[Rfam]
RNA sequence: UAAGUUCUCGAUCUUUAAAAUCGUUAGCUCGCCAGUUAGCGAGGUCUGCGAAAGCAGAUAAUCGGGUGCAACUCCCGCCCUUUCUCCGAGGGUCAUCGGAACCA
Numbered sequence: 001u002a003a004g005u006u007c008u009c010g011a012u013c014u015u016u017a018a019a020a021u022c023g024u025u026a027g028c029u030c031g032c033c034a035g036u037u038a039g040c041g042a043g044g045u046c047u048g049c050g051a052a053a054g055c056a057g058a059u060a061a062u063c064g065g066g067u068g069c070a071a072c073u074c075c076c077g078c079c080c081u082u083u084c085u086c087c088g089a090g091g092g093u094c095a096u097c098g099g100a101a102c103c104a
Stems, first nucleotide, its partner, number of pairs: 027094001028043005035069001044059006063077004078092003085100005